[Rfam]
RNA sequence: CACUCCCUGAGGUGUUUGGCAGUUGGUACAGUCCCUCGAGCCGAUAAUUAACACCCCGGAGGUUUUCAGAAGGCGCCGAUGUGCAUGUCCGCAAGACGGAAAGCCUAAAGUGUCUCGAAAACCACCACCUUGAACCUUCGGGUUCAGGGCCGAAAUCAACACCGGCAUCCUGGGGAGCCU
Numbered sequence: 001c002a003c004u005c006c007c008u009g010a011g012g013u014g015u016u017u018g019g020c021a022g023u024u025g026g027u028a029c030a031g032u033c034c035c036u037c038g039a040g041c042c043g044a045u046a047a048u049u050a051a052c053a054c055c056c057c058g059g060a061g062g063u064u065u066u067c068a069g070a071a072g073g074c075g076c077c078g079a080u081g082u083g084c085a086u087g088u089c090c091g092c093a094a095g096a097c098g099g100a101a102a103g104c105c106u107a108a109a110g111u112g113u114c115u116c117g118a119a120a121a122c123c124a125c126c127a128c129c130u131u132g133a134a135c136c137u138u139c140g141g142g143u144u145c146a147g148g149g150c151c152g153a154a155a156u157c158a159a160c161a162c163c164g165g166c167a168u169c170c171u172g173g174g175g176a177g178c179c180u
Stems, first nucleotide, its partner, number of pairs: 003177007011169005017164003033149003038145005058126002062122006069116001071115006083104002088100004
A member of the RNA family "6S / SsrS RNA" from Motiliproteus sp. MSK22-1, 180 nucleotides long. The family's RNA type in Rfam is non-coding RNA gene. The match comes from Rfam's covariance-model search (96 bits). Taxonomically the source falls in Motiliproteus (Bacteria, Pseudomonadota, Gammaproteobacteria, Oceanospirillaceae).